[Rfam]
RNA sequence: UGACCAUUCUUUCGAAAAGAAUUUAGGCCAUACGGACAGCCGGGUCAACUGCCGA
Number, nucleotide and partner (000 for none) at each position: 001u047002g046003a045004c044005c043006a022007u021008u020009c019010u018011u017012u000013c000014g000015a000016a000017a011018a010019g009020a008021a007022u006023u000024u000025a000026g000027g000028c000029c000030a000031u000032a000033c000034g000035g000036a000037c000038a000039g000040c000041c000042g000043g005044g004045u003046c002047a001048a000049c000050u000051g000052c000053c000054g000055a000